[Rfam]
RNA: mir-205 microRNA precursor family
Organism: Anabarilius grahami
RNA sequence: GCAUUGUGCCCUUCAUUCCACCGGAGUCUGUCGGGACGGAUCAGAUUUCAGUGGAAUGAAGAACACGACACA
Dot-bracket structure: ..........((((((..(((.((((.(((...........))).)))).)))..))))))...........
Numbered sequence: 001g002c003a004u005u006g007u008g009c010c011c012u013u014c015a016u017u018c019c020a021c022c023g024g025a026g027u028c029u030g031u032c033g034g035g036a037c038g039g040a041u042c043a044g045a046u047u048u049c050a051g052u053g054g055a056a057u058g059a060a061g062a063a064c065a066c067g068a069c070a071c072a
Stems, first nucleotide, its partner, number of pairs: 011061006019053003023049004028044003